The family of this 152-nucleotide sequence from Rhizobium gallicum is "Rhizobiales sRNA Atu_C7". Taxonomically the source falls in Rhizobium gallicum bv. gallicum (Bacteria, Pseudomonadati, Pseudomonadota, Hyphomicrobiales). It scores 51 bits against the family's covariance model. Rfam classes the family as a small RNA.
[Rfam]
RNA sequence: CUAAUAUGAACACAUUCGGAAGUUCAGGUGGGAUUGACCUGAUCUUCUGUAAUUGGUUCUCCUGGCGCGUUCUAAGCCGCGGGCGGUCCUCCCUCGCCCGAUGGUUAUGCGCCCGCCUCGCCUCGCACGUCAUCCGGCGCGCGAGGCUUUUU
Numbered sequence: 001c002u003a004a005u006a007u008g009a010a011c012a013c014a015u016u017c018g019g020a021a022g023u024u025c026a027g028g029u030g031g032g033a034u035u036g037a038c039c040u041g042a043u044c045u046u047c048u049g050u051a052a053u054u055g056g057u058u059c060u061c062c063u064g065g066c067g068c069g070u071u072c073u074a075a076g077c078c079g080c081g082g083g084c085g086g087u088c089c090u091c092c093c094u095c096g097c098c099c100g101a102u103g104g105u106u107a108u109g110c111g112c113c114c115g116c117c118u119c120g121c122c123u124c125g126c127a128c129g130u131c132a133u134c135c136g137g138c139g140c141g142c143g144a145g146g147c148u149u150u151u152u
Stems, first nucleotide, its partner, number of pairs: 064113007080100006120147007128139001130137002